[Rfam]
RNA sequence: AAGAAAUCGAAGAAAAAGACGAGUAAAUUAAAUACGAGUUCUAGAGAGAAGAUGGUUGGUGUAAAUCUUCACAGUAUUUUAUUGAAGCUACUUUGGAGAGUGGUUAAUACCCAUCGUGAAUCUCGCGUUAAGGAUAAUCAAGGUGCAUAUCACAACGAUAUGAAUCAGGAUGGUACCGCGUAACUUUUACGUUCCUGUU
Numbered sequence: 001a002a003g004a005a006a007u008c009g010a011a012g013a014a015a016a017a018g019a020c021g022a023g024u025a026a027a028u029u030a031a032a033u034a035c036g037a038g039u040u041c042u043a044g045a046g047a048g049a050a051g052a053u054g055g056u057u058g059g060u061g062u063a064a065a066u067c068u069u070c071a072c073a074g075u076a077u078u079u080u081a082u083u084g085a086a087g088c089u090a091c092u093u094u095g096g097a098g099a100g101u102g103g104u105u106a107a108u109a110c111c112c113a114u115c116g117u118g119a120a121u122c123u124c125g126c127g128u129u130a131a132g133g134a135u136a137a138u139c140a141a142g143g144u145g146c147a148u149a150u151c152a153c154a155a156c157g158a159u160a161u162g163a164a165u166c167a168g169g170a171u172g173g174u175a176c177c178g179c180g181u182a183a184c185u186u187u188u189a190c191g192u193u194c195c196u197g198u199u
Stems, first nucleotide, its partner, number of pairs: 007099002015094004026083003030079002038072002048070006101113003105109001115127003146162006167196004178192005
RNA: T-box leader
Organism: Anaerorhabdus furcosa